[Rfam]
RNA sequence: GGGUCUGGAAUAUUUUUCCAGAGGAUAUCAGAUGGUCGGGCCGCCAUCU
Numbered sequence: 001g002g003g004u005c006u007g008g009a010a011u012a013u014u015u016u017u018c019c020a021g022a023g024g025a026u027a028u029c030a031g032a033u034g035g036u037c038g039g040g041c042c043g044c045c046a047u048c049u
Stems, first nucleotide, its partner, number of pairs: 005021006030049007
Dot-bracket structure: ....((((((.....))))))........(((((((......)))))))